[Rfam]
RNA sequence: GGUAUUGUUUACCUCACGAUAAGCCCCGGAAACUUAUUGUAUCUGAUUGGAAGGAACGCCAAUCUUUGUAAACAACUA
Numbered sequence: 001g002g003u004a005u006u007g008u009u010u011a012c013c014u015c016a017c018g019a020u021a022a023g024c025c026c027c028g029g030a031a032a033c034u035u036a037u038u039g040u041a042u043c044u045g046a047u048u049g050g051a052a053g054g055a056a057c058g059c060c061a062a063u064c065u066u067u068g069u070a071a072a073c074a075a076c077u078a
Base pairs, nucleotide, nucleotide: 006074007073008072009071010070011069012068016040017039018038019037020036021035022034023033
RNA: Ribosomal protein L13 leader
Organism: Leuconostoc fallax